[Rfam]
RNA: small Cajal body-specific RNA 17
RNA sequence: CCUCCGGGUUCAGGAUGCAGCCCCCGGAUGAGGCCGCAAUAUUUUCCUUAUAUGAUCGGGCCCCGUGGCAGGCGGCGCCGCCGGCCCGGAGCCUGAGAGGAUUAUGAAAACGUGUUAGGCGAAAUGGGGCCAGGGACCCGGGG
Dot-bracket structure: ((.((((((((........(((((...............................((((((.((...((.((((....)))).))..)).)))))).............................)))))...))))))))))